The record is a 289-nucleotide RNA sequence from Fusarium heterosporum, which matches "Fungal signal recognition particle RNA" in Rfam. It scores 137 bits against the family's covariance model. NCBI's taxonomy places the organism under Eukaryota, Dikarya, Hypocreales, Nectriaceae, Fusarium heterosporum species complex. The literature on the family includes a 2002 paper in Nucleic Acids Res by Regalia et al., "Prediction of signal recognition particle RNA genes". It is annotated as a non-coding RNA gene.
Nucleotides: 289
Stems, first nucleotide, its partner, number of pairs: 001013003017287004023281001027278004032273001036269002039266003047259009060077002064073003082246001083243001085241003089237003093230008102220004107215004112151002115148001117146002119142002122140005128135002158162001167210005177202003184195003
Number, partner (000 for none) and nucleotide at each position: 001013g002012a003011c004000u005000g006000u007000a008000a009000u010000g011003g012002u013001c014000u015000a016000a017287c018286g019285g020284u021000g022000a023281a024000g025000g026000c027278g028277c029276u030275c031000a032273a033000a034000c035000c036269c037268g038000c039266u040265c041264a042000a043000c044000c045000g046000c047259c048258c049257a050256u051255c052254c053253c054252a055251a056000u057000u058000c059000u060077g061076g062000u063000u064073g065072u066071g067000c068000u069000u070000g071066c072065a073064c074000c075000u076061c077060c078000a079000g080000c081000c082246c083243u084000u085241c086240g087239c088000c089237g090236c091235g092000c093230c094229c095228c096227g097226c098225u099224c100223g101000a102220a103219c104218g105217c106000u107215g108214c109213g110212g111000u112151g113150g114000u115148u116000g117146c118145c119142c120141a121000c122140u123139c124138g125137u126136g127000c128135a129134g130000g131000u132000a133000a134129c135128u136126c137125a138124c139123g140122a141120u142119g143000c144000u145118g146117g147000a148115a149000u150113u151112u152000g153000c154000a155000g156000c157000c158162u159000u160000a161000a162158g163000c164000a165000c166000u167210g168209g169208a170207g171206a172000u173000g174000a175000c176000c177202c178201u179200u180000g181000a182000g183000g184195g185194a186193g187000g188000u189000u190000u191000c192000a193186c194185u195184c196000u197000g198000c199000a200179g201178a202177g203000a204000u205000c206171u207170c208169u209168c210167c211000c212110c213109c214108g215107u216000c217105g218104c219103g220102u221000g222000g223100c224099g225098g226097g227096u228095g229094g230093g231000a232000a233000c234000a235091c236090g237089u238000u239087g240086u241085g242000c243083g244000a245000a246082g247000g248000g249000a250000u251055u252054u253053g254052g255051g256050a257049u258048g259047g260000u261000a262000a263000g264041u265040g266039g267000a268037u269036g270000a271000g272000a273032u274000g275030g276029a277028g278027c279000a280000g281023u282000c283000g284020a285019c286018u287017g288000u289000u